RNA sequence: CGGAGCCGCCGCAGCCUGCAGCCGCGGGAGGACGCCCAGAGCGGCCAGCGGACUGACCGGCAGACUCGCCCGUGUCCACCUGUCUGCUGCUGGGUCCGGCCCGGAGCUCCGCGGGCACCCGCGUCCGAGCAGAGCAGCCGAGGCCGCCCGCCUGCCCGGGCCCCGCGCUCCGGCCCCCCCACCGCCACCCUAGCCGGCCCGGGAGAGAGUUUGCACCUCUCGCUGCCUGGGUGCGCCGGCCGCCGCUGCAAAGCCAACUUCGGGAAAAGUUUUUUGGGGGUGACUUUGGCUUUGGGGUGCCGGGCUCCAGCUUUCCUACGUCGGGGGCCCCUUCCCGGAAAAUGCUGCAGAAGAGCUAAGGCGGCGGGCAGAGGAAGACGCCGUUAGCCAGCAGAAGGAGCGAGAAGACGAGCCACCGGCUGGCCGCCGCGUUCCCCGUCCUCCUGGAGGUUGGAGCCCCCGAGGCGCCCCCGCACGGCUAGACACCCCGGCCGGUUCGCCACGCAGCCCCCCGGCGGUGGUGGAUGCUCACUGGGGCCCGGGAUCCGCCCAGGUAGCGGCCUCGGACCCUGGUCCCGCGCCCAGGCCCUCCGCAGCCCCCCAACAACGGAGCCGGGGG
Numbered sequence: 001c002g003g004a005g006c007c008g009c010c011g012c013a014g015c016c017u018g019c020a021g022c023c024g025c026g027g028g029a030g031g032a033c034g035c036c037c038a039g040a041g042c043g044g045c046c047a048g049c050g051g052a053c054u055g056a057c058c059g060g061c062a063g064a065c066u067c068g069c070c071c072g073u074g075u076c077c078a079c080c081u082g083u084c085u086g087c088u089g090c091u092g093g094g095u096c097c098g099g100c101c102c103g104g105a106g107c108u109c110c111g112c113g114g115g116c117a118c119c120c121g122c123g124u125c126c127g128a129g130c131a132g133a134g135c136a137g138c139c140g141a142g143g144c145c146g147c148c149c150g151c152c153u154g155c156c157c158g159g160g161c162c163c164c165g166c167g168c169u170c171c172g173g174c175c176c177c178c179c180c181a182c183c184g185c186c187a188c189c190c191u192a193g194c195c196g197g198c199c200c201g202g203g204a205g206a207g208a209g210u211u212u213g214c215a216c217c218u219c220u221c222g223c224u225g226c227c228u229g230g231g232u233g234c235g236c237c238g239g240c241c242g243c244c245g246c247u248g249c250a251a252a253g254c255c256a257a258c259u260u261c262g263g264g265a266a267a268a269g270u271u272u273u274u275u276g277g278g279g280g281u282g283a284c285u286u287u288g289g290c291u292u293u294g295g296g297g298u299g300c301c302g303g304g305c306u307c308c309a310g311c312u313u314u315c316c317u318a319c320g321u322c323g324g325g326g327g328c329c330c331c332u333u334c335c336c337g338g339a340a341a342a343u344g345c346u347g348c349a350g351a352a353g354a355g356c357u358a359a360g361g362c363g364g365c366g367g368g369c370a371g372a373g374g375a376a377g378a379c380g381c382c383g384u385u386a387g388c389c390a391g392c393a394g395a396a397g398g399a400g401c402g403a404g405a406a407g408a409c410g411a412g413c414c415a416c417c418g419g420c421u422g423g424c425c426g427c428c429g430c431g432u433u434c435c436c437c438g439u440c441c442u443c444c445u446g447g448a449g450g451u452u453g454g455a456g457c458c459c460c461c462g463a464g465g466c467g468c469c470c471c472c473g474c475a476c477g478g479c480u481a482g483a484c485a486c487c488c489c490g491g492c493c494g495g496u497u498c499g500c501c502a503c504g505c506a507g508c509c510c511c512c513c514g515g516c517g518g519u520g521g522u523g524g525a526u527g528c529u530c531a532c533u534g535g536g537g538c539c540c541g542g543g544a545u546c547c548g549c550c551c552a553g554g555u556a557g558c559g560g561c562c563u564c565g566g567a568c569c570c571u572g573g574u575c576c577c578g579c580g581c582c583c584a585g586g587c588c589c590u591c592c593g594c595a596g597c598c599c600c601c602c603a604a605c606a607a608c609g610g611a612g613c614c615g616g617g618g619g
Base pairs, nucleotide, nucleotide: 002255003254005249006248008246009245011243012242014240015239016238018236021234022233025222027220028219029218030217031216034161035160036159037158039156041155042154043101044100045099048095049094053092055090057086059084060083061082062081063080067074068073105153106152108150111147112146113145114144116142118140119132121130122129164213165212167210168209169208170207174203175202176201178197179196257270258269259268260267277594279592280591282589284586285585286584288582289581290580296533297532298531299530304528305527306525307524308523309522315515316514323512324511325510326509327508328507347356348355360392363389364388365387368385371382373379400505401504402503407500409499410498411497412496413495414494416491417490418489419488420482421481426479427478428477429476431474432473433455434454435453437450439448440447441446456466457465458464535576536575537574538573541570542569543568545567546566547565548564552563553562554561555560599618600617601616602615605612

Annotation
Shown here is a 619-nucleotide RNA sequence from Pipistrellus kuhlii, a member of the family "c-sis internal ribosome entry site (IRES)". The base pairs follow the family's consensus structure, which was predicted with ILM. A search with the family's covariance model found it, with a score of 262 bits. Rfam links the family to the GO term ribosome binding. This family represents the c-sis 5'-UTR which contains three modules that can individually mediate internal ribosome entry. The organism belongs to Pipistrellus, within Eukaryota. The family has 10 seed sequences and 123 matches in Rfam 15.1.